[Rfam]
RNA sequence: AGGUUAAUGCUAAUCGUGAUAGGGGUUGUUCAUGACCAUACACCUAACAUGUUAGCAUUAGCUU
Numbered sequence: 001a002g003g004u005u006a007a008u009g010c011u012a013a014u015c016g017u018g019a020u021a022g023g024g025g026u027u028g029u030u031c032a033u034g035a036c037c038a039u040a041c042a043c044c045u046a047a048c049a050u051g052u053u054a055g056c057a058u059u060a061g062c063u064u
Stems, first nucleotide, its partner, number of pairs: 004061011020046004025041002
The record is a 64-nucleotide RNA from Scophthalmus maximus, which matches "mir-155 microRNA precursor family" in Rfam.
The family has 25 seed sequences and 647 matches in Rfam 15.1.